[Rfam]
RNA sequence: CUGUAAAGAUAUGUAGAGAGCUGUAGAGCCUUAAUCCCAAAUGGGGUCAUAUCGAGGAA
Numbered sequence: 001c002u003g004u005a006a007a008g009a010u011a012u013g014u015a016g017a018g019a020g021c022u023g024u025a026g027a028g029c030c031u032u033a034a035u036c037c038c039a040a041a042u043g044g045g046g047u048c049a050u051a052u053c054g055a056g057g058a059a
Stems, first nucleotide, its partner, number of pairs: 008053006015032002018030001020029003035046004
The record is a 59-nucleotide sequence, which matches "S4-Fusobacteriales ribosomal protein leader" in Rfam. Rfam classes the family as a cis-regulatory leader. Rfam's curators put it in the seed alignment.